Notes
Rfam assigns this 139-nucleotide sequence from Odobenus rosmarus to the family "U4 spliceosomal RNA". On this family, see Thomas et al., Nucleic Acids Res 1990: "The spliceosomal snRNAs of Caenorhabditis elegans". It is annotated as a spliceosomal small nuclear RNA. A search with the family's covariance model found it, with a score of 79 bits.

[Rfam]
RNA sequence: AGCUUUGCGCAGUGGCAGUAUCGUAGCCAAUGAGGUUUAUCCGAGGAGCGAUUAUUGCUAAUUGAAAACUUUUCAAUGCAAUCCCUAUCAAAAUACCAUCCACUUUUUUCAAAGAAAUUGAACAAAUAAUCCUAAAAUU
Numbered sequence: 001a002g003c004u005u006u007g008c009g010c011a012g013u014g015g016c017a018g019u020a021u022c023g024u025a026g027c028c029a030a031u032g033a034g035g036u037u038u039a040u041c042c043g044a045g046g047a048g049c050g051a052u053u054a055u056u057g058c059u060a061a062u063u064g065a066a067a068a069c070u071u072u073u074c075a076a077u078g079c080a081a082u083c084c085c086u087a088u089c090a091a092a093a094u095a096c097c098a099u100c101c102a103c104u105u106u107u108u109u110c111a112a113a114g115a116a117a118u119u120g121a122a123c124a125a126a127u128a129a130u131c132c133u134a135a136a137a138u139u
Base pairs, nucleotide, nucleotide: 020052021051022050023049024048027046028045034042035041085114086113088111090109091108092107093106095104128139129138130137